[Rfam]
RNA sequence: AGCUUUGCGCAGAGGCGAUAACAUAGCCGAUGAGGUCCAACCGAGGCGUGUUUAUUGCUAGUUGAAAACUUUUCCCAAUACCCCGCCUAAAGGACGUGAAAUACCGUCCUGAACGGCAAUUUUUAAGAGCUCGAACAGAG
Numbered sequence: 001a002g003c004u005u006u007g008c009g010c011a012g013a014g015g016c017g018a019u020a021a022c023a024u025a026g027c028c029g030a031u032g033a034g035g036u037c038c039a040a041c042c043g044a045g046g047c048g049u050g051u052u053u054a055u056u057g058c059u060a061g062u063u064g065a066a067a068a069c070u071u072u073u074c075c076c077a078a079u080a081c082c083c084c085g086c087c088u089a090a091a092g093g094a095c096g097u098g099a100a101a102u103a104c105c106g107u108c109c110u111g112a113a114c115g116g117c118a119a120u121u122u123u124u125a126a127g128a129g130c131u132c133g134a135a136c137a138g139a140g
Base pairs, nucleotide, nucleotide: 020052021051022050023049024048026047027046028045034042035041036040085117086116087115088113091110092109093108094107095106096105130140131139132138
Dot-bracket structure: ...................(((((.(((.....(((...)))..))))))))................................((((..((((((........))))))..).)))............(((.....)))

Description:
The family of this 140-nucleotide sequence from Branchiostoma lanceolatum is "U4 spliceosomal RNA". For this family Rfam cites "The spliceosomal snRNAs of Caenorhabditis elegans" (Thomas et al., Nucleic Acids Res, 1990). The family has 177 seed sequences and 32,178 matches in Rfam 15.1. The source organism's lineage runs through Eukaryota, Metazoa, Leptocardii, Amphioxiformes and Branchiostoma. By type it is a spliceosomal small nuclear RNA. The match comes from Rfam's covariance-model search (107 bits).